RNA: Bacterial RNase P class A
Organism: bacterium endosymbiont of Pedicinus badii
RNA sequence: UGAGUUGAUUAAAAUAGUCGCUUGUACGAAAUAUAAAUUUUGUAUAAGAGGAAAGUCCGGACUUCAUAAGGCAGGGUGCCAGAUAACUUCUGGGAAAUAUAAAAUAUUUACGAAAAGUGCAACAGAAAAAAUACCGCUUGUUUUUGCAAGUAAGGGUGAAAUGGUAUGGUAAGAGCAUACCGCAUUUUUGGUAACAAAAAUGGCAUUGCAAACUCCACUUGAAGAAAGGCUAAGUAUAGUUUAGUUCGCCUGACUAAUAAACUAGGGUAAGCUGAUUGAAUUAAUAUGCGAAUAUUAAUCUAGAAAAAUGACUAUUUAAAACAGAAUCCGGCUUAUUAAUCAACUCUUUUU
Numbered sequence: 001u002g003a004g005u006u007g008a009u010u011a012a013a014a015u016a017g018u019c020g021c022u023u024g025u026a027c028g029a030a031a032u033a034u035a036a037a038u039u040u041u042g043u044a045u046a047a048g049a050g051g052a053a054a055g056u057c058c059g060g061a062c063u064u065c066a067u068a069a070g071g072c073a074g075g076g077u078g079c080c081a082g083a084u085a086a087c088u089u090c091u092g093g094g095a096a097a098u099a100u101a102a103a104a105u106a107u108u109u110a111c112g113a114a115a116a117g118u119g120c121a122a123c124a125g126a127a128a129a130a131a132u133a134c135c136g137c138u139u140g141u142u143u144u145u146g147c148a149a150g151u152a153a154g155g156g157u158g159a160a161a162u163g164g165u166a167u168g169g170u171a172a173g174a175g176c177a178u179a180c181c182g183c184a185u186u187u188u189u190g191g192u193a194a195c196a197a198a199a200a201u202g203g204c205a206u207u208g209c210a211a212a213c214u215c216c217a218c219u220u221g222a223a224g225a226a227a228g229g230c231u232a233a234g235u236a237u238a239g240u241u242u243a244g245u246u247c248g249c250c251u252g253a254c255u256a257a258u259a260a261a262c263u264a265g266g267g268u269a270a271g272c273u274g275a276u277u278g279a280a281u282u283a284a285u286a287u288g289c290g291a292a293u294a295u296u297a298a299u300c301u302a303g304a305a306a307a308a309u310g311a312c313u314a315u316u317u318a319a320a321a322c323a324g325a326a327u328c329c330g331g332c333u334u335a336u337u338a339a340u341c342a343a344c345u346c347u348u349u350u351u
Stems, first nucleotide, its partner, number of pairs: 002346009011336001013316007021048011053334003057331005062224004069251004074220005079093005094111001095109006112215002117213002119209003134155002136151006163181006182204001183202008228273004237264005242256005280299008